SAM riboswitch aptamer (S box leader): a 129-nucleotide RNA sequence from Paenibacillus sp. Root444D2. The match comes from Rfam's covariance-model search (64 bits).

[Rfam]
RNA sequence: UUCUUAUCAAGAGUAGGUGGAGGGACUAGCCCUAUGACACCCGGCAACCGACAAACCUUUGCAAGCAAAGGGACGCACGGUGCUAAUUCUUGCGGAAACGCUGUUUAAAGCGAAUCUGGGAGAUAAGAG
Numbered sequence: 001u002u003c004u005u006a007u008c009a010a011g012a013g014u015a016g017g018u019g020g021a022g023g024g025a026c027u028a029g030c031c032c033u034a035u036g037a038c039a040c041c042c043g044g045c046a047a048c049c050g051a052c053a054a055a056c057c058u059u060u061g062c063a064a065g066c067a068a069a070g071g072g073a074c075g076c077a078c079g080g081u082g083c084u085a086a087u088u089c090u091u092g093c094g095g096a097a098a099c100g101c102u103g104u105u106u107a108a109a110g111c112g113a114a115u116c117u118g119g120g121a122g123a124u125a126a127g128a129g
Stems, first nucleotide, its partner, number of pairs: 001129008013042001016041003022032003026092001028090002043084004048080002050076001088121001093118004